[Rfam]
RNA sequence: GGUCCAAUGCCACGUCUACGGUAGCUCAAAAGAAGCUUUGACCGGCGAUGCUAUGAUUGGUCCAACAGUAAUCCUCUGUUUCGCAUCUUGAUAGGAACCUGUGGAUCUUACUUUUAGUGGUCUACGGAGCCGUUUUGUGCGAUUACAUUU
Numbered sequence: 001g002g003u004c005c006a007a008u009g010c011c012a013c014g015u016c017u018a019c020g021g022u023a024g025c026u027c028a029a030a031a032g033a034a035g036c037u038u039u040g041a042c043c044g045g046c047g048a049u050g051c052u053a054u055g056a057u058u059g060g061u062c063c064a065a066c067a068g069u070a071a072u073c074c075u076c077u078g079u080u081u082c083g084c085a086u087c088u089u090g091a092u093a094g095g096a097a098c099c100u101g102u103g104g105a106u107c108u109u110a111c112u113u114u115u116a117g118u119g120g121u122c123u124a125c126g127g128a129g130c131c132g133u134u135u136u137g138u139g140c141g142a143u144u145a146c147a148u149u150u
Stems, first nucleotide, its partner, number of pairs: 002062001004060005009054001013050004020043003024036003081142005094131002099127003103123005

Rfam assigns this 150-nucleotide RNA sequence from Trema orientale to the family "Small nucleolar RNA snoR2/U65". By type it is an H/ACA-box small nucleolar RNA. A search with the family's covariance model found it, with a score of 128 bits. Taxonomically the source falls in Trema (Eukaryota, Streptophyta, Spermatophyta, Gunneridae).